[Rfam]
RNA sequence: CCUCUUCCCCUCGCGCGCCCGGACCCCUAUAUUCACGACGUCGUCGCAAGGCGACUAUGGCGAUAAACGGCCGUUGUAAUAAGCCUUUCGGACCCGGGGGCGGUACCCGGCGCCUCCACCCGAACCCGUCCGGCACGAUGCCGGGGCGGGUUCCGGCGGGGGCGAACUAGGAUCGACGAGGGCCUAAAGAGCGUUCUUUCGCCCGGCAUGAUACCGCCGUUAUCGGGUCAAAUUUAUAGUUGCCAACGACAACUAUGCUCCGGUUGCGGUUGCCGCGUGAGCGGUAACUAAUCCGGUACCAAGUCCUGGCGGGUAGCACCGUCAGGCGGGGUUCGGAGGUACCUGGCAACAGAAACCUCCACU
Numbered sequence: 001c002c003u004c005u006u007c008c009c010c011u012c013g014c015g016c017g018c019c020c021g022g023a024c025c026c027c028u029a030u031a032u033u034c035a036c037g038a039c040g041u042c043g044u045c046g047c048a049a050g051g052c053g054a055c056u057a058u059g060g061c062g063a064u065a066a067a068c069g070g071c072c073g074u075u076g077u078a079a080u081a082a083g084c085c086u087u088u089c090g091g092a093c094c095c096g097g098g099g100g101c102g103g104u105a106c107c108c109g110g111c112g113c114c115u116c117c118a119c120c121c122g123a124a125c126c127c128g129u130c131c132g133g134c135a136c137g138a139u140g141c142c143g144g145g146g147c148g149g150g151u152u153c154c155g156g157c158g159g160g161g162g163c164g165a166a167c168u169a170g171g172a173u174c175g176a177c178g179a180g181g182g183c184c185u186a187a188a189g190a191g192c193g194u195u196c197u198u199u200c201g202c203c204c205g206g207c208a209u210g211a212u213a214c215c216g217c218c219g220u221u222a223u224c225g226g227g228u229c230a231a232a233u234u235u236a237u238a239g240u241u242g243c244c245a246a247c248g249a250c251a252a253c254u255a256u257g258c259u260c261c262g263g264u265u266g267c268g269g270u271u272g273c274c275g276c277g278u279g280a281g282c283g284g285u286a287a288c289u290a291a292u293c294c295g296g297u298a299c300c301a302a303g304u305c306c307u308g309g310c311g312g313g314u315a316g317c318a319c320c321g322u323c324a325g326g327c328g329g330g331g332u333u334c335g336g337a338g339g340u341a342c343c344u345g346g347c348a349a350c351a352g353a354a355a356c357c358u359c360c361a362c363u
Stems, first nucleotide, its partner, number of pairs: 040055005059203005069196002072193004084182003088179003094110005111164007204219004209230003214226002329344004335360006
The record is a 363-nucleotide RNA from Prosthecodimorpha hirschii, which matches "Alphaproteobacteria transfer-messenger RNA" in Rfam.
Lineage of the source: Bacteria > Pseudomonadati > Pseudomonadota > Ancalomicrobiaceae > Prosthecodimorpha.
It scores 299 bits against the family's covariance model.
Pairs were carried over by alignment from the consensus structure, which is taken from published work.
Bacterial tmRNA, also known as 10Sa RNA or SsrA, is named for its dual tRNA and mRNA-like properties.